[Rfam]
RNA: S16-Flavobacteria ribosomal protein leader
RNA sequence: AUUAAUAAUCGAGGUCGUGAACCUCACUAAUUAAU
Numbered sequence: 001a002u003u004a005a006u007a008a009u010c011g012a013g014g015u016c017g018u019g020a021a022c023c024u025c026a027c028u029a030a031u032u033a034a035u
Stems, first nucleotide, its partner, number of pairs: 001035006011025005